[Rfam]
Description
Bacterial large subunit ribosomal RNA: a 235-nucleotide part of an RNA from Cecembia lonarensis. The base pairs follow the family's consensus structure, which is taken from published work. The source organism's lineage runs through Bacteria, Pseudomonadati, Cytophagales, Cyclobacteriaceae and Cecembia lonarensis.
RNA sequence: GAGUUGCGCCUCACUGGCAAGGUUAAGUGUUUUGAGACACGCAGCCGGAGCGAAAGCGAGUCUGAACAGGGCGGUUACAGUCAGUGGGGGCAGACGCGAAACUUUGUGAUCUACCCAUGGCCAGGCUGAAGGUGCGGUAACACGUACUGGAGGGCCGAACCGAUAAGCGUUGAAAAGCUUCCGGAUGAGCUGUGGGUAGGGGUGAAAGGCCAAUCAAACUGAGAAAUAGCUCGUA
Numbered sequence: 001g002a003g004u005u006g007c008g009c010c011u012c013a014c015u016g017g018c019a020a021g022g023u024u025a026a027g028u029g030u031u032u033u034g035a036g037a038c039a040c041g042c043a044g045c046c047g048g049a050g051c052g053a054a055a056g057c058g059a060g061u062c063u064g065a066a067c068a069g070g071g072c073g074g075u076u077a078c079a080g081u082c083a084g085u086g087g088g089g090g091c092a093g094a095c096g097c098g099a100a101a102c103u104u105u106g107u108g109a110u111c112u113a114c115c116c117a118u119g120g121c122c123a124g125g126c127u128g129a130a131g132g133u134g135c136g137g138u139a140a141c142a143c144g145u146a147c148u149g150g151a152g153g154g155c156c157g158a159a160c161c162g163a164u165a166a167g168c169g170u171u172g173a174a175a176a177g178c179u180u181c182c183g184g185a186u187g188a189g190c191u192g193u194g195g196g197u198a199g200g201g202g203u204g205a206a207a208g209g210c211c212a213a214u215c216a217a218a219c220u221g222a223g224a225a226a227u228a229g230c231u232c233g234u235a
Stems, first nucleotide, its partner, number of pairs: 005092003009089010021046004027040003050057002060072004095233002098230001102223003106219002111199011122187001124156004131148006160184003165180004201211003